[Rfam]
A member of the RNA family "mir-184 microRNA precursor family" from Conger conger, 85 nucleotides long. Rfam 15.1 lists 948 matches to the family in 823 species. The literature on the family includes a 2005 paper in Genes Dev by Chen et al., "The developmental miRNA profiles of zebrafish as determined by small RNA cloning".
Nucleotides: 085
Stems, first nucleotide, its partner, number of pairs: 012074009022064006030056002
Number, partner (000 for none) and nucleotide at each position: 001000u002000c003000g004000c005000u006000c007000a008000c009000g010000u011000c012074u013073c014072c015071u016070u017069a018068u019067c020066a021000c022064u023063u024062u025061u026060c027059c028000a029000g030056u031055c032000c033000a034000g035000c036000u037000a038000a039000c040000c041000g042000c043000u044000c045000u046000g047000a048000a049000u050000c051000c052000g053000u054000u055031g056030g057000a058000c059027g060026g061025a062024g063023a064022a065000c066020u067019g068018a069017u070016a071015a072014g073013g074012g075000c076000a077000c078000g079000u080000g081000a082000c083000u084000a085000a